[Rfam]
RNA: Mammalian CPEB3 ribozyme
RNA sequence: GUUGCAAGUUUGAGCCCAUAGCAGAAGUGCUCAUGGUGGAGCCUGUCAGAUUCAUUGAAUCUGUGAAUUCUGCU
Number, nucleotide and partner (000 for none) at each position: 001g000002u000003u000004g000005c000006a000007a000008g000009u000010u000011u000012g000013a000014g042015c041016c039017c038018a000019u000020a074021g073022c072023a071024g070025a069026a068027g037028u000029g000030c000031u000032c000033a000034u000035g000036g000037u027038g017039g016040a000041g015042c014043c000044u000045g000046u000047c063048a062049g061050a060051u059052u058053c057054a000055u000056u000057g053058a052059a051060u050061c049062u048063g047064u000065g000066a000067a000068u026069u025070c024071u023072g022073c021074u020